[Rfam]
RNA sequence: UCGCAUCCGCCAAUCGGUACAGCCGUGUCGCGGAAGGUUUACUAACCAACUAAAGCUUCCUUCAGGGGAGCAGAGGUCAGCG
Number, nucleotide and partner (000 for none) at each position: 001u000002c082003g081004c080005a000006u034007c033008c032009g031010c030011c000012a000013a000014u000015c025016g024017g023018u022019a000020c000021a000022g018023c017024c016025g015026u000027g000028u000029c000030g010031c009032g008033g007034a006035a000036g047037g046038u045039u044040u000041a000042c000043u000044a039045a038046c037047c036048a000049a077050c076051u075052a000053a000054a000055g071056c070057u069058u068059c067060c066061u065062u000063c000064a000065g061066g060067g059068g058069a057070g056071c055072a000073g000074a000075g051076g050077u049078c000079a000080g004081c003082g002

SucA RNA motif: an 82-nucleotide sequence from Comamonas kerstersii. Taxonomically the source falls in Comamonas (Bacteria, Pseudomonadati, Pseudomonadota, Comamonadaceae). For this family Rfam cites "Identification of 22 candidate structured RNAs in bacteria using the CMfinder comparative genomics pipeline" (Weinberg et al., Nucleic Acids Res, 2007).